[Rfam]
RNA sequence: AGCAGAGUAGAUUAUGAAGCGUUAAGUGCCUGAUGAACGGGGAGUUGUCAUUGGGACGAAAAAAAGAGAGAACUGUCUUUUUGCGGUUUCGUAGUCGCAUCCCGCUGCU
Numbered sequence: 001a002g003c004a005g006a007g008u009a010g011a012u013u014a015u016g017a018a019g020c021g022u023u024a025a026g027u028g029c030c031u032g033a034u035g036a037a038c039g040g041g042g043a044g045u046u047g048u049c050a051u052u053g054g055g056a057c058g059a060a061a062a063a064a065a066g067a068g069a070g071a072a073c074u075g076u077c078u079u080u081u082u083g084c085g086g087u088u089u090c091g092u093a094g095u096c097g098c099a100u101c102c103c104g105c106u107g108c109u
Stems, first nucleotide, its partner, number of pairs: 001109005010096010020085003026057002029055008040102003044098001061082007
A member of the RNA family "THF (Tetrahydrofolate) riboswitch aptamer" from Streptococcus zalophi, 109 nucleotides long.
For this family Rfam cites "A eubacterial riboswitch class that senses the coenzyme tetrahydrofolate" (Ames et al., Chem Biol, 2010).
The source organism's lineage runs through Bacteria, Bacillati, Bacilli, Lactobacillales and Streptococcus.